The record is a 386-nucleotide RNA from Leifsonia sp. Root112D2, which matches "Bacterial RNase P class A" in Rfam. It scores 301 bits against the family's covariance model. The family's RNA type in Rfam is ribozyme.

RNA sequence: UGGGCCGGCAAGACGGUCGCGUCAUUCGUGUCGCAAGGCACAGAUGCCGAGGAACGUCCGGGCUCCGCAGAGCAGGAUGGUGGGUAACACCCACCCGGGGCAACCCGCGAGACAGUGCCACAGAAAACAGACCGCCGCUGAAUCUGGCCUUCGGGUCGUGUUCGGGGGUAAGGGUGAAACGGUGGUGUAAGAGACCACCAGCGGCCAGGGUGACCUGGUCGGCUCGGUAAACCUCGUCCGGAGCAAGGUCAGACAGGAAACUAUGAGGCUGCUCGUCUCGUUUCCGGGUAGGCCGCUAGAGGGCUGCGGCAACGUAGUCCCGAGAGAGAUGGCCGUCCAGCGCUUUCGAGCGUGAACAGAACCCGGCGUAUCAGCCGGCCCAUUCC
Number, nucleotide and partner (000 for none) at each position: 001u382002g381003g380004g379005c378006c377007g376008g375009c374010a000011a371012g337013a336014c335015g334016g333017u332018c331019g000020c049021g048022u000023c046024a045025u044026u043027c000028g041029u040030g039031u038032c000033g000034c000035a000036a000037g000038g031039c030040a029041c028042a000043g026044a025045u024046g023047c000048c021049g020050a000051g000052g000053a000054a369055c368056g367057u000058c366059c365060g364061g363062g362063c243064u242065c241066c240067g000068c000069a000070g274071a273072g272073c271074a000075g239076g238077a237078u236079g235080g094081u093082g092083g091084g090085u000086a000087a000088c000089a000090c084091c083092c082093a081094c080095c109096c107097g106098g105099g104100g000101c000102a000103a000104c099105c098106c097107g096108c000109g095110a234111g233112a000113c000114a000115g232116u231117g228118c227119c226120a000121c000122a000123g000124a000125a000126a000127a000128c000129a000130g000131a000132c173133c172134g169135c168136c167137g000138c165139u164140g163141a162142a161143u000144c000145u000146g000147g000148c000149c000150u000151u000152c000153g000154g000155g000156u000157c000158g000159u000160g000161u142162u141163c140164g139165g138166g000167g136168g135169u134170a000171a000172g133173g132174g000175u000176g000177a000178a000179a000180c000181g199182g198183u197184g196185g195186u194187g000188u000189a000190a000191g000192a000193g000194a186195c185196c184197a183198c182199c181200a000201g223202c221203g220204g219205c218206c217207a216208g215209g214210g000211u000212g000213a000214c209215c208216u207217g206218g205219u204220c203221g202222g000223c201224u000225c000226g119227g118228u117229a000230a000231a116232c115233c111234u110235c079236g078237u077238c076239c075240g066241g065242a064243g063244c000245a000246a000247g294248g293249u292250c291251a000252g000253a000254c000255a000256g285257g284258a283259a282260a281261c280262u000263a000264u000265g279266a278267g277268g276269c275270u000271g073272c072273u071274c070275g269276u268277c267278u266279c265280g261281u260282u259283u258284c257285c256286g000287g000288g000289u000290a000291g250292g249293c248294c247295g000296c000297u000298a000299g000300a000301g320302g319303g318304c317305u316306g315307c314308g313309g000310c000311a000312a000313c308314g307315u306316a305317g304318u303319c302320c301321c000322g000323a000324g000325a000326g000327a000328g000329a000330u000331g018332g017333c016334c015335g014336u013337c012338c000339a000340g000341c000342g000343c000344u000345u000346u000347c000348g000349a000350g000351c000352g000353u000354g000355a000356a000357c000358a000359g000360a000361a000362c062363c061364c060365g059366g058367c056368g055369u054370a000371u011372c000373a000374g009375c008376c007377g006378g005379c004380c003381c002382a001383u000384u000385c000386c000